[Rfam]
RNA sequence: UUGCGUUAGGGAUUGUAACGAAAAUCCUUUUUCUUUUUUCAGAAAAAGAUUGUAGUGAAAAGCCCGACCCGAU
Numbered sequence: 001u002u003g004c005g006u007u008a009g010g011g012a013u014u015g016u017a018a019c020g021a022a023a024a025u026c027c028u029u030u031u032u033c034u035u036u037u038u039u040c041a042g043a044a045a046a047a048g049a050u051u052g053u054a055g056u057g058a059a060a061a062g063c064c065c066g067a068c069c070c071g072a073u
Base pairs, nucleotide, nucleotide: 009065010064011063013061014060018056019055023051024050025049026048029046030045031044032043033042
Source information:
Flavo-1 RNA: a 73-nucleotide RNA. Rfam's curators put it in the seed alignment. The base pairs follow the family's consensus structure, which is taken from published work. The family's RNA type in Rfam is small RNA.